RNA sequence: AUCCCAUUGUCUUCUAUGGCUUUUUAUUCCUAUGUGAUUAUAUUGCUAAUUUCAUAUAGGGAUUGAAGCCAUGCAAUACAU
Numbered sequence: 001a002u003c004c005c006a007u008u009g010u011c012u013u014c015u016a017u018g019g020c021u022u023u024u025u026a027u028u029c030c031u032a033u034g035u036g037a038u039u040a041u042a043u044u045g046c047u048a049a050u051u052u053c054a055u056a057u058a059g060g061g062a063u064u065g066a067a068g069c070c071a072u073g074c075a076a077u078a079c080a081u
Stems, first nucleotide, its partner, number of pairs: 008080003012076002015073009026063012
Dot-bracket structure: .......(((.((.(((((((((..((((((((((((..............)))))))))))).))))))))).)).))).